[Rfam]
Nucleotides: 075
Stems, first nucleotide, its partner, number of pairs: 001074007010027004029045005051067005
Number, partner (000 for none) and nucleotide at each position: 001074c002073u003072c004071u005070c006069c007068g008000u009000a010027g011026c012025u013024c014000a015000g016000u017000g018000g019000a020000c021000c022000u023000a024013g025012a026011g027010c028000a029045g030044g031043g032042a033041g034000c035000u036000u037000c038000u039000a040000c041033c042032u043031c044030c045029c046000g047000u048000g049000u050000c051067g052066g053065g054064a055063g056000u057000u058000c059000g060000a061000a062000u063055c064054u065053c066052u067051c068007c069006g070005g071004g072003g073002a074001g075000g
tRNA: a 75-nucleotide sequence from Pseudaminobacter soli. By type it is a transfer RNA. The match comes from Rfam's covariance-model search (54 bits). The base pairs follow the family's consensus structure, which is taken from published work. A reference for the family is Hou (1993), "The tertiary structure of tRNA and the development of the genetic code", Trends Biochem Sci. The source organism's lineage runs through Bacteria, Pseudomonadati, Alphaproteobacteria, Phyllobacteriaceae and Pseudaminobacter.